[Rfam]
RNA sequence: ACAUUUCGGUAACCGCUGCGCAUUAUGCGUAGAGGAAAGUCCAUGCUCGCACAGCCUGAGAUGGCUGUAGUGAUCGAGCUCGGCCAAUUCAUAAGCCGGGGUAGUUCGCGAUGCGGACUAACGGCAGGGAAAUGACCUACGUCGAAUUUUCGAUAUGGUCAGAUUACCUUGAAAGUGCCACAGUGACGAAGUCUGUCGAGAAAUCGACAGAGUGGAACGCGGUAAACCCCUCGAGCGAGAAACCCAAAAAUAGGUAGGGGCACCUUCUCAAAGGAAUGAAACGGAGAGAAGGACGGGAUACUUCAUAGUGUUCCGUAGACAGAUGGUUACCACCGGAGUACGAGGGAUAAUCCGUCCUGCUAGCAGUACGAAGGGACAGAACAUGGCUUACGAAA
Numbered sequence: 001a002c003a004u005u006u007c008g009g010u011a012a013c014c015g016c017u018g019c020g021c022a023u024u025a026u027g028c029g030u031a032g033a034g035g036a037a038a039g040u041c042c043a044u045g046c047u048c049g050c051a052c053a054g055c056c057u058g059a060g061a062u063g064g065c066u067g068u069a070g071u072g073a074u075c076g077a078g079c080u081c082g083g084c085c086a087a088u089u090c091a092u093a094a095g096c097c098g099g100g101g102u103a104g105u106u107c108g109c110g111a112u113g114c115g116g117a118c119u120a121a122c123g124g125c126a127g128g129g130a131a132a133u134g135a136c137c138u139a140c141g142u143c144g145a146a147u148u149u150u151c152g153a154u155a156u157g158g159u160c161a162g163a164u165u166a167c168c169u170u171g172a173a174a175g176u177g178c179c180a181c182a183g184u185g186a187c188g189a190a191g192u193c194u195g196u197c198g199a200g201a202a203a204u205c206g207a208c209a210g211a212g213u214g215g216a217a218c219g220c221g222g223u224a225a226a227c228c229c230c231u232c233g234a235g236c237g238a239g240a241a242a243c244c245c246a247a248a249a250a251u252a253g254g255u256a257g258g259g260g261c262a263c264c265u266u267c268u269c270a271a272a273g274g275a276a277u278g279a280a281a282c283g284g285a286g287a288g289a290a291g292g293a294c295g296g297g298a299u300a301c302u303u304c305a306u307a308g309u310g311u312u313c314c315g316u317a318g319a320c321a322g323a324u325g326g327u328u329a330c331c332a333c334c335g336g337a338g339u340a341c342g343a344g345g346g347a348u349a350a351u352c353c354g355u356c357c358u359g360c361u362a363g364c365a366g367u368a369c370g371a372a373g374g375g376a377c378a379g380a381a382c383a384u385g386g387c388u389u390a391c392g393a394a395a
Base pairs, nucleotide, nucleotide: 004395005394006393008331009330010329011328012327013326014325016032017031018030019029020028021027037389038388039387041386042385043384044383045382046239047238048237049236050235051068052067053066054065055064056063074234075233076232077231078230079100080099081098082097083096084095101122102120103119104118105117106116107115108114109113123229124228126169127168128167134160135159136158137157141154142153143152144151145150175227176226177223178222179221192211193210194209195208196207197206198205199204243259244258245257263292264291265290266289267288268287269286293316294315295314296313297312298311299310300309301308302307333374334373338369339368340367341366
Rfam assigns this 395-nucleotide RNA from Texcoconibacillus texcoconensis to the family "Bacterial RNase P class B". Its Rfam clan is "RNaseP clan". Lineage of the source: Bacteria > Bacillota > Bacilli > Caryophanales > Texcoconibacillus. By type it is a ribozyme. Ribonuclease P (RNase P) is a ubiquitous endoribonuclease, found in archaea, bacteria and eukarya as well as chloroplasts and mitochondria. Its best characterised activity is the generation of mature 5'-ends of tRNAs by cleaving the 5'-leader elements of precursor-tRNAs. Cellular RNase Ps are ribonucleoproteins.